A member of the RNA family "HIV gag stem loop 3 (GSL3)" from Lentivirus humimdef1, 84 nucleotides long. Taxonomically the source falls in Lentivirus humimdef1 (Viruses, Riboviria, Revtraviricetes, Orthoretrovirinae). Gene Ontology term of the family: viral RNA genome packaging. Rfam's curators write: This family consists of several HIV gag stem loop 3 (GSL3) sequences. GSL3 is known to direct specific packaging of HIV-1 genomic RNA. Deletion of GSL3 leads to decreases in both viral RNA packaging and dimerisation.
RNA sequence: GGCCAGGGGGAAAGAAACACUAUAUGCUGAAACACCUAGUCUGGGCAAACAGGGAGCUGGAAAAAUUUGCACUUAACCCUGACC
Numbered sequence: 001g002g003c004c005a006g007g008g009g010g011a012a013a014g015a016a017a018c019a020c021u022a023u024a025u026g027c028u029g030a031a032a033c034a035c036c037u038a039g040u041c042u043g044g045g046c047a048a049a050c051a052g053g054g055a056g057c058u059g060g061a062a063a064a065a066u067u068u069g070c071a072c073u074u075a076a077c078c079c080u081g082a083c084c
Stems, first nucleotide, its partner, number of pairs: 001084002004081005
The family's RNA type in Rfam is cis-regulatory element.